Record summary:
The family of this 72-nucleotide sequence from Aquimarina amphilecti is "tRNA". It is annotated as a transfer RNA. It scores 64 bits against the family's covariance model.
RNA sequence: UAAGGUAUAACUCAGUGGCAGAGUACCGCGCUUGUAUCGCGGGAGUCUUGGGUUCGAUUCCCAAUACCUUAG
Numbered sequence: 001u002a003a004g005g006u007a008u009a010a011c012u013c014a015g016u017g018g019c020a021g022a023g024u025a026c027c028g029c030g031c032u033u034g035u036a037u038c039g040c041g042g043g044a045g046u047c048u049u050g051g052g053u054u055c056g057a058u059u060c061c062c063a064a065u066a067c068c069u070u071a072g
Base pairs, nucleotide, nucleotide: 001071002070003069004068005067006066007065010024011023012022013021026042027041028040029039030038048064049063050062051061052060
Lineage of the source: Bacteria > Pseudomonadati > Flavobacteriales > Flavobacteriaceae > Aquimarina.